[Rfam]
A member of the RNA family "Editing element of GABA-3 exon 9" from Polypterus senegalus, 54 nucleotides long. The source organism's lineage runs through Eukaryota, Bilateria, Vertebrata, Polypteriformes and Polypterus.
RNA sequence: AAAGUAGCAUAUGCUACAGCUAUGGACUGGUUCAUAGCAGUUUGCUAUGCAUUU
Numbered sequence: 001a002a003a004g005u006a007g008c009a010u011a012u013g014c015u016a017c018a019g020c021u022a023u024g025g026a027c028u029g030g031u032u033c034a035u036a037g038c039a040g041u042u043u044g045c046u047a048u049g050c051a052u053u054u
Stems, first nucleotide, its partner, number of pairs: 001054003007050002010047002013045002016041002019038002022035005